The record is a 193-nucleotide sequence from Plectosphaerella cucumerina, which matches "U2 spliceosomal RNA" in Rfam. Pairs were carried over by alignment from the consensus structure, which is taken from published work. Taxonomically the source falls in Plectosphaerella (Eukaryota, Opisthokonta, Fungi, Ascomycota).
RNA sequence: CUCCCCUCUCCAGCCUUUUGGCUUAGAUCAAGUGUAGUAUCUGUUCUUUUCAGUUUAAUCUCUGAAAGGUCUCUAUUGAGACCAAUCUUGAUUAUUCCUAUUUUUGUACCUCGGGUGAGGCCCUCUGUGCUUGCACAUGGCCCUGCCCACCGUGUCCCUGGUAUUACACUGCCUCCAGGCGACGCAAACCCUC
Numbered sequence: 001c002u003c004c005c006c007u008c009u010c011c012a013g014c015c016u017u018u019u020g021g022c023u024u025a026g027a028u029c030a031a032g033u034g035u036a037g038u039a040u041c042u043g044u045u046c047u048u049u050u051c052a053g054u055u056u057a058a059u060c061u062c063u064g065a066a067a068g069g070u071c072u073c074u075a076u077u078g079a080g081a082c083c084a085a086u087c088u089u090g091a092u093u094a095u096u097c098c099u100a101u102u103u104u105u106g107u108a109c110c111u112c113g114g115g116u117g118a119g120g121c122c123c124u125c126u127g128u129g130c131u132u133g134c135a136c137a138u139g140g141c142c143c144u145g146c147c148c149a150c151c152g153u154g155u156c157c158c159u160g161g162u163a164u165u166a167c168a169c170u171g172c173c174u175c176c177a178g179g180c181g182a183c184g185c186a187a188a189c190c191c192u193c
Stems, first nucleotide, its partner, number of pairs: 007027003012023004048067006068083006113148005119142002126137004152185005157179005
From the family's description: U2 is a small nuclear RNA (snRNA) component of the spliceosome (involved in pre-mRNA splicing).